Annotation
The family of this 45-nucleotide RNA from Tannerella sp. oral taxon 808 is "Acido-Lenti-1 RNA".

RNA sequence: CCCAGGGCGUUGCCCUGGGCUAAGUUGAAUUGCCCCUUCGGGGCG
Numbered sequence: 001c002c003c004a005g006g007g008c009g010u011u012g013c014c015c016u017g018g019g020c021u022a023a024g025u026u027g028a029a030u031u032g033c034c035c036c037u038u039c040g041g042g043g044c045g
Stems, first nucleotide, its partner, number of pairs: 001019008032044005